[Rfam]
Flavo-1 RNA: a 75-nucleotide sequence from Flavobacterium johnsoniae.
RNA sequence: CAAUAGCCCCGAUCGAAGUGAUAUCCUUUUCAUGCUUCUUUAGCAGGAAAGAUAUAACGAAGAGCGGGACUAAAG
Dot-bracket structure: ........(((.((...((...(((...(((.((((.....)))).))).)))...))...)).)))........
Background: The organism belongs to Flavobacterium johnsoniae, within Bacteria.